[Rfam]
RNA sequence: UUUGGCGUUGAUUGUCCGAACGCAAUUCUUGGUGAAUUCGAACAAGGAUUGUGUUAGGGCGUCAUUGCUAGA
Numbered sequence: 001u002u003u004g005g006c007g008u009u010g011a012u013u014g015u016c017c018g019a020a021c022g023c024a025a026u027u028c029u030u031g032g033u034g035a036a037u038u039c040g041a042a043c044a045a046g047g048a049u050u051g052u053g054u055u056a057g058g059g060c061g062u063c064a065u066u067g068c069u070a071g072a
Stems, first nucleotide, its partner, number of pairs: 002071006009064004014060004021053011
This 72-nucleotide RNA from Rhynchophorus ferrugineus belongs to the Rfam family "mir-219 microRNA precursor family". Rfam 15.1 lists 1,318 matches to the family in 774 species. For this family Rfam cites "Computational identification of Drosophila microRNA genes" (Lai et al., Genome Biol, 2003).